This 138-nucleotide RNA sequence from Morus notabilis belongs to the Rfam family "mir-393 microRNA precursor family".
On this family, see Kruszka et al., J Plant Physiol 2012: "Role of microRNAs and other sRNAs of plants in their changing environments".
It scores 98 bits against the family's covariance model.
RNA sequence: GGUGGAGACUUCCAAAGGGAUCGCAUUGAUCUAAUUAUAUUCGGCACUUUGAUCAGUGUACGUAUUUAAUUAAUUAUUAGUACUUUACUAAUUUCAGUUCAUUUUAUUGGAUCAUGCGAUCCCUUAGGAAGUUUCCAU
Numbered sequence: 001g002g003u004g005g006a007g008a009c010u011u012c013c014a015a016a017g018g019g020a021u022c023g024c025a026u027u028g029a030u031c032u033a034a035u036u037a038u039a040u041u042c043g044g045c046a047c048u049u050u051g052a053u054c055a056g057u058g059u060a061c062g063u064a065u066u067u068a069a070u071u072a073a074u075u076a077u078u079a080g081u082a083c084u085u086u087a088c089u090a091a092u093u094u095c096a097g098u099u100c101a102u103u104u105u106a107u108u109g110g111a112u113c114a115u116g117c118g119a120u121c122c123c124u125u126a127g128g129a130a131g132u133u134u135c136c137a138u
Stems, first nucleotide, its partner, number of pairs: 002138005008132006015125007023117004028113008